Background: This 98-nucleotide RNA from Sarcina ventriculi belongs to the Rfam family "Purine riboswitch aptamer". Rfam describes the family as follows. Riboswitches are metabolite binding domains within certain messenger RNAs that serve as precision sensors for their corresponding targets.
RNA sequence: UUAAUGAUAAAAUAAAUCGCUCGUAUAAACCCUGAAUAUGGCAGGGUGUCUCUACCGGAAACCUUAAAAUUCCGUCUAUGAGUGAAUUUAAUAUAGUC
Dot-bracket structure: .................((((((((...((((((.......))))))........(((((.........)))))..))))))))..............